[Rfam]
RNA: GA-cis RNA
RNA sequence: AUGAGGUUGUGCCCAUGCAUCGAAGAUGCAUAUGGAAUGGCACAACCGACUUGCCGCCGAACGAAUGUGAGGGGGCGAUACCAACA
Number, nucleotide and partner (000 for none) at each position: 001a000002u000003g000004a000005g000006g000007u000008u044009g043010u042011g041012c040013c039014c000015a031016u030017g029018c028019a027020u026021c000022g000023a000024a000025g000026a020027u019028g018029c017030a016031u015032a000033u000034g000035g000036a000037a000038u000039g013040g012041c011042a010043c009044a008045a000046c000047c000048g000049a000050c000051u000052u000053g076054c075055c074056g000057c072058c071059g000060a000061a068062c067063g000064a000065a000066u000067g062068u061069g000070a000071g058072g057073g000074g055075g054076c053077g000078a000079u000080a000081c000082c000083a000084a000085c000086a000